[Rfam]
RNA: let-7 microRNA precursor family
RNA sequence: CCAGGUUGAGGUAGUAGGUUGUAUAGUUUAGAAUUACAUCAAGGGAGAUAACUGUACAGCCUCCUAGCUUUCCUUG
Numbered sequence: 001c002c003a004g005g006u007u008g009a010g011g012u013a014g015u016a017g018g019u020u021g022u023a024u025a026g027u028u029u030a031g032a033a034u035u036a037c038a039u040c041a042a043g044g045g046a047g048a049u050a051a052c053u054g055u056a057c058a059g060c061c062u063c064c065u066a067g068c069u070u071u072c073c074u075u076g
Stems, first nucleotide, its partner, number of pairs: 001076001003074003008070003012066003016062012031040002